Source information
c-di-AMP riboswitch aptamer (ydaO/yuaA leader): a 156-nucleotide sequence from Streptoalloteichus hindustanus.
RNA sequence: CGCGAGUCACCGCCGAAUCGGCUAGUCGGGGAGCCGAACCGGGGACCCAAACCCCCAGGGGUGAAUCCGGUCCGGGCGUGUCGACCACGUCCUGCUGGUAGGGCGUGUCCGGCCCGAACCCGUCAGCUAACCCGGUAGGCGGUCGCGGAGGACGAA
Numbered sequence: 001c002g003c004g005a006g007u008c009a010c011c012g013c014c015g016a017a018u019c020g021g022c023u024a025g026u027c028g029g030g031g032a033g034c035c036g037a038a039c040c041g042g043g044g045a046c047c048c049a050a051a052c053c054c055c056c057a058g059g060g061g062u063g064a065a066u067c068c069g070g071u072c073c074g075g076g077c078g079u080g081u082c083g084a085c086c087a088c089g090u091c092c093u094g095c096u097g098g099u100a101g102g103g104c105g106u107g108u109c110c111g112g113c114c115c116g117a118a119c120c121c122g123u124c125a126g127c128u129a130a131c132c133c134g135g136u137a138g139g140c141g142g143u144c145g146c147g148g149a150g151g152a153c154g155a156a
Stems, first nucleotide, its partner, number of pairs: 011141004018037006038136006048058001059121003067098004101115004

The organism belongs to Streptoalloteichus, within Bacteria.
Rfam links the family to the GO terms regulation of gene expression and cyclic-di-AMP binding.